[Rfam]
RNA sequence: UUGAGUUAGGUUUGUGAUUGAAAGUCGAAGCCAGUCGCAGGCGAAACGAUCCACGUAAGUUAAAUAAAAUAUUUAAUGAUCAUGGUGCGGCUUAGAAGUAAGUCCUGCCGUUAAUUAAACGAGAGGGUAAGUAGUGAGAGGAUAAUUCUGGGUAGCAAAAGCUCCAGCAGGCGAGUGUGGGGUCAAAGAUCAGGUCAACUAACUUAA
Numbered sequence: 001u002u003g004a005g006u007u008a009g010g011u012u013u014g015u016g017a018u019u020g021a022a023a024g025u026c027g028a029a030g031c032c033a034g035u036c037g038c039a040g041g042c043g044a045a046a047c048g049a050u051c052c053a054c055g056u057a058a059g060u061u062a063a064a065u066a067a068a069a070u071a072u073u074u075a076a077u078g079a080u081c082a083u084g085g086u087g088c089g090g091c092u093u094a095g096a097a098g099u100a101a102g103u104c105c106u107g108c109c110g111u112u113a114a115u116u117a118a119a120c121g122a123g124a125g126g127g128u129a130a131g132u133a134g135u136g137a138g139a140g141g142a143u144a145a146u147u148c149u150g151g152g153u154a155g156c157a158a159a160a161g162c163u164c165c166a167g168c169a170g171g172c173g174a175g176u177g178u179g180g181g182g183u184c185a186a187a188g189a190u191c192a193g194g195u196c197a198a199c200u201a202a203c204u205u206a207a
Stems, first nucleotide, its partner, number of pairs: 001207009012198003015192005028178001030176001031041001033092007050085002055080001058077001060075001062073002083185001104171005109121004125164004134156002140149003
The record is a 207-nucleotide sequence from Clostridium tetanomorphum, which matches "raiA RNA" in Rfam. It scores 202 bits against the family's covariance model. Pairs were carried over by alignment from the consensus structure, which is taken from published work.